[Rfam]
RNA sequence: UUAUAAAUUAAAGCGCCUGAACUAGACUGGCCAAUUGAUUGGCAGCUAGUUGACGAGGAGGAGGGUUAUCGAAUGUUCGGCGGAUACCUCCCGGUUGAAAACAAUCACGACCGUAAUUUCUUCUUUAAAAGCAUGGAGGCAACUCUUUGUACAAAGAGAAGGAUAUGAUUGAU
Numbered sequence: 001u002u003a004u005a006a007a008u009u010a011a012a013g014c015g016c017c018u019g020a021a022c023u024a025g026a027c028u029g030g031c032c033a034a035u036u037g038a039u040u041g042g043c044a045g046c047u048a049g050u051u052g053a054c055g056a057g058g059a060g061g062a063g064g065g066u067u068a069u070c071g072a073a074u075g076u077u078c079g080g081c082g083g084a085u086a087c088c089u090c091c092c093g094g095u096u097g098a099a100a101a102c103a104a105u106c107a108c109g110a111c112c113g114u115a116a117u118u119u120c121u122u123c124u125u126u127a128a129a130a131g132c133a134u135g136g137a138g139g140c141a142a143c144u145c146u147u148u149g150u151a152c153a154a155a156g157a158g159a160a161g162g163a164u165a166u167g168a169u170u171g172a173u
Stems, first nucleotide, its partner, number of pairs: 020051006029043001060091005069080004092113006118163007132149002135146004